[Rfam]
RNA sequence: UAUUAGGUUGGUGCAAAGGUAAUUGUGGUUUUGCCAUUAUUUGUAAUGGCAAAAACCACAAUUACCUUUGCACCAACCUAAUA
Numbered sequence: 001u002a003u004u005a006g007g008u009u010g011g012u013g014c015a016a017a018g019g020u021a022a023u024u025g026u027g028g029u030u031u032u033g034c035c036a037u038u039a040u041u042u043g044u045a046a047u048g049g050c051a052a053a054a055a056c057c058a059c060a061a062u063u064a065c066c067u068u069u070g071c072a073c074c075a076a077c078c079u080a081a082u083a
Stems, first nucleotide, its partner, number of pairs: 001083029030053010
mir-548 microRNA precursor family: an 83-nucleotide sequence from Hipposideros armiger.
Its family is annotated with RISC complex and miRNA-mediated post-transcriptional gene silencing in the Gene Ontology.
Taxonomically the source falls in Hipposideros (Eukaryota, Euteleostomi, Sarcopterygii, Laurasiatheria).
Pairs were carried over by alignment from the consensus structure, which was predicted with WAR.
The match comes from Rfam's covariance-model search (97 bits).
The family has 11 seed sequences and 3,009 matches in Rfam 15.1.